[Rfam]
RNA sequence: UGCCGUGAUGUCGUAAUUUGCGUCUUACUCUGUGCUCAGUGACAGUUGCCUGCUGUCAUCAUACUGGUACGGGUGGUUGACGAACGAUUAACGCUGAGCA
Numbered sequence: 001u002g003c004c005g006u007g008a009u010g011u012c013g014u015a016a017u018u019u020g021c022g023u024c025u026u027a028c029u030c031u032g033u034g035c036u037c038a039g040u041g042a043c044a045g046u047u048g049c050c051u052g053c054u055g056u057c058a059u060c061a062u063a064c065u066g067g068u069a070c071g072g073g074u075g076g077u078u079g080a081c082g083a084a085c086g087a088u089u090a091a092c093g094c095u096g097a098g099c100a
Stems, first nucleotide, its partner, number of pairs: 001100003021082004030072005039064002041057005